[Rfam]
RNA sequence: UUUUAAUUUUGCGUUAGGGAUAGUAGUGGCAUCCUUUUUUAUUCUAUUUUUUAUAAGUUUAUCUAUAAGGUUUGAUAAAAAAGAUAUAGCGGAUAGCCCGCCCGAAC
Numbered sequence: 001u002u003u004u005a006a007u008u009u010u011g012c013g014u015u016a017g018g019g020a021u022a023g024u025a026g027u028g029g030c031a032u033c034c035u036u037u038u039u040u041a042u043u044c045u046a047u048u049u050u051u052u053a054u055a056a057g058u059u060u061a062u063c064u065a066u067a068a069g070g071u072u073u074g075a076u077a078a079a080a081a082a083g084a085u086a087u088a089g090c091g092g093a094u095a096g097c098c099c100g101c102c103c104g105a106a107c
Stems, first nucleotide, its partner, number of pairs: 017099003021095002026090002031085003037080007
A member of the RNA family "Flavo-1 RNA" from Aquimarina sp. RZ0, 107 nucleotides long.
Rfam 15.1 lists 7,497 matches to the family in 411 species.
Rfam classes the family as a small RNA.
Lineage of the source: Bacteria > Pseudomonadati > Bacteroidota > Flavobacteriia > Aquimarina.